[Rfam]
RNA sequence: UGCGAAGGAACUUCGACUAACAACGUCACGUCCGUGUGACAACGUCGAAGCCUGACCAUCCAUGGUCU
Numbered sequence: 001u002g003c004g005a006a007g008g009a010a011c012u013u014c015g016a017c018u019a020a021c022a023a024c025g026u027c028a029c030g031u032c033c034g035u036g037u038g039a040c041a042a043c044g045u046c047g048a049a050g051c052c053u054g055a056c057c058a059u060c061c062a063u064g065g066u067c068u
Base pairs, nucleotide, nucleotide: 011050012049013048014047015046016045017044025040026039027038028037029036054067055066056065057064

This 68-nucleotide sequence from Pullulanibacillus pueri belongs to the Rfam family "Bacillaceae-1 RNA". Pairs were carried over by alignment from the consensus structure, which is taken from published work. The source organism's lineage runs through Bacteria, Bacillati, Bacilli, Caryophanales and Pullulanibacillus. Rfam classes the family as a small RNA.